Rfam assigns this 91-nucleotide sequence from Canis lupus to the family "mir-8799 microRNA precursor family". The match comes from Rfam's covariance-model search (67 bits).
RNA sequence: AGGGGAAGGCAGGAUCCUGGGCUGUGUCCCUGGCACCCUGGGCUCCCGGGCCUGCUUUGCUGGAAUCACGCUCCUGGCAGUGCAGCCCCCU
Dot-bracket structure: (((((...((..(..((.(((.((((((.((((..(...(.(((....)))).)..)))..)))..)))).))).)))...))...)))))